[Rfam]
RNA: Streptococcus sRNA SpF66
Organism: Lachnospiraceae bacterium AM48-27BH
RNA sequence: UAAAUUCGUUACCGCACCCAAUCUGGUGACAGAAAGGGGGUGCCCACAUGGAUCUUCUUAUAUCAUUCUUUGUCUCCGUCGCAGCAGGUGUAGUUAGUUACUAUAUCUGCAAAUGGCUAGACGGCGACGAUAGCGGUAAUUAGCCUAACGGAUGCUCAACCGUUCAAAAUGAGAAGAAACCCCAGUAGCCGUCACUACUGGGGUUUCGUUUUGUG
Numbered sequence: 001u002a003a004a005u006u007c008g009u010u011a012c013c014g015c016a017c018c019c020a021a022u023c024u025g026g027u028g029a030c031a032g033a034a035a036g037g038g039g040g041u042g043c044c045c046a047c048a049u050g051g052a053u054c055u056u057c058u059u060a061u062a063u064c065a066u067u068c069u070u071u072g073u074c075u076c077c078g079u080c081g082c083a084g085c086a087g088g089u090g091u092a093g094u095u096a097g098u099u100a101c102u103a104u105a106u107c108u109g110c111a112a113a114u115g116g117c118u119a120g121a122c123g124g125c126g127a128c129g130a131u132a133g134c135g136g137u138a139a140u141u142a143g144c145c146u147a148a149c150g151g152a153u154g155c156u157c158a159a160c161c162g163u164u165c166a167a168a169a170u171g172a173g174a175a176g177a178a179a180c181c182c183c184a185g186u187a188g189c190c191g192u193c194a195c196u197a198c199u200g201g202g203g204u205u206u207c208g209u210u211u212u213g214u215g
Stems, first nucleotide, its partner, number of pairs: 005034002009029005016022001036164002039161002048066004052061002081155003085109003089105006115145006123137001125135001166214001168212002173207003179204010